[Rfam]
This 279-nucleotide RNA sequence from Nannospalax galili belongs to the Rfam family "Mason-Pfizer monkey virus packaging signal". The source organism's lineage runs through Eukaryota, Amniota, Myomorpha, Muroidea and Nannospalax. Rfam 15.1 lists 2,921 matches to the family in 53 species. From the family's description: This family represents a group of sequences that are related to the Mason-Pfizer monkey virus (MPMV) packaging signal. The packaging signal is located in the 5' UTR and is required for specific RNA encapsidation. Rfam classes the family as a cis-regulatory element.
RNA sequence: UGGCGCCCAAUGUGGGGCUCGAUACUGGGGGCACAUCGUGAGGGAGGACAGAAAAAGGAAGGAGUGCACUCGCUAAAUUUCAAGCAAUUCGGAGGCGCGCCACAGGAGCCUGCCGUGACCAAACCGAAAGUAAGUCAAUCCAUCGGAUCAUGGGGCAAGGAUUAAGCCAGCAUCAAAUUUAUGUUACGCAGUUGAGGGAGGCUCUCAAGACAAGAGGAGUAAAGGUUAAGACUGUGGAUUUAUUUCAUUUCUUUGAUUUUGUGAAGGACAUUUGUCCUU
Numbered sequence: 001u002g003g004c005g006c007c008c009a010a011u012g013u014g015g016g017g018c019u020c021g022a023u024a025c026u027g028g029g030g031g032c033a034c035a036u037c038g039u040g041a042g043g044g045a046g047g048a049c050a051g052a053a054a055a056a057g058g059a060a061g062g063a064g065u066g067c068a069c070u071c072g073c074u075a076a077a078u079u080u081c082a083a084g085c086a087a088u089u090c091g092g093a094g095g096c097g098c099g100c101c102a103c104a105g106g107a108g109c110c111u112g113c114c115g116u117g118a119c120c121a122a123a124c125c126g127a128a129a130g131u132a133a134g135u136c137a138a139u140c141c142a143u144c145g146g147a148u149c150a151u152g153g154g155g156c157a158a159g160g161a162u163u164a165a166g167c168c169a170g171c172a173u174c175a176a177a178u179u180u181a182u183g184u185u186a187c188g189c190a191g192u193u194g195a196g197g198g199a200g201g202c203u204c205u206c207a208a209g210a211c212a213a214g215a216g217g218a219g220u221a222a223a224g225g226u227u228a229a230g231a232c233u234g235u236g237g238a239u240u241u242a243u244u245u246c247a248u249u250u251c252u253u254u255g256a257u258u259u260u261g262u263g264a265a266g267g268a269c270a271u272u273u274g275u276c277c278u279u
Base pairs, nucleotide, nucleotide: 006030007029008028012025013024014023036048037047039045084131085130088128089127097120101117102116103115105113139157141155143154144153146151164205166202167201168200214254215253216252217251218250219249223241224240225239226238227237264279265278266277267276268275269274
Dot-bracket structure: .....(((...(((........)))..))).....((.(.....).))...................................((..((.......(...(((.(.......).)))..)......)).)).......(.(.((.(....).))).)......(.(((...............................)))..)........((((((...(((((.........))))).......)))))).........((((((....))))))